This 175-nucleotide RNA sequence from Streptomyces luteolifulvus belongs to the Rfam family "c-di-AMP riboswitch aptamer (ydaO/yuaA leader)". The source organism's lineage runs through Bacteria, Bacillati, Actinomycetes, Streptomycetaceae and Streptomyces. It scores 63 bits against the family's covariance model.
RNA sequence: GCGCGGCCUCCGCCGAAUCCGGAACGCCCCCGCGGGCGAACCGGAACCGGGGACCCACCGACCUUGGGGUGAAUCGGCCCGCCUCCCUUCCCGGGAAACGGCCGUAGGGCAACCCUUCCGAACCACCCGCCCGAACCCGACAGCUAACUCGGUAGGCGGACCACUGGAAGGAGUC
Numbered sequence: 001g002c003g004c005g006g007c008c009u010c011c012g013c014c015g016a017a018u019c020c021g022g023a024a025c026g027c028c029c030c031c032g033c034g035g036g037c038g039a040a041c042c043g044g045a046a047c048c049g050g051g052g053a054c055c056c057a058c059c060g061a062c063c064u065u066g067g068g069g070u071g072a073a074u075c076g077g078c079c080c081g082c083c084u085c086c087c088u089u090c091c092c093g094g095g096a097a098a099c100g101g102c103c104g105u106a107g108g109g110c111a112a113c114c115c116u117u118c119c120g121a122a123c124c125a126c127c128c129g130c131c132c133g134a135a136c137c138c139g140a141c142a143g144c145u146a147a148c149u150c151g152g153u154a155g156g157c158g159g160a161c162c163a164c165u166g167g168a169a170g171g172a173g174u175c
Base pairs, nucleotide, nucleotide: 011158012157013156014155018045019044020043021042022041046153047152048151049150050149051148056066057065067138068137069136075104076103077102078101107132108131109130110129